RNA sequence: UGAUGGCCGUGAUGAUUCUUAAACUUAUUGUUCACCUGAUAAAUAAAUGAAGGUGUUCAGUCACUACCUCAUCUGAUGCCAUCU
Numbered sequence: 001u002g003a004u005g006g007c008c009g010u011g012a013u014g015a016u017u018c019u020u021a022a023a024c025u026u027a028u029u030g031u032u033c034a035c036c037u038g039a040u041a042a043a044u045a046a047a048u049g050a051a052g053g054u055g056u057u058c059a060g061u062c063a064c065u066a067c068c069u070c071a072u073c074u075g076a077u078g079c080c081a082u083c084u
Base pairs, nucleotide, nucleotide: 002083003082004081005080006079007078
Small nucleolar RNA SNORD11B: an 84-nucleotide sequence from Pteropus vampyrus. The family is grouped with related families in Rfam's "SNORD11 clan". Rfam classes the family as a C/D-box small nucleolar RNA. Lineage of the source: Eukaryota > Dipnotetrapodomorpha > Eutheria > Pteropodoidea > Pteropus. Rfam's curators put it in the seed alignment. Rfam links the family to the GO terms nucleolus and RNA processing.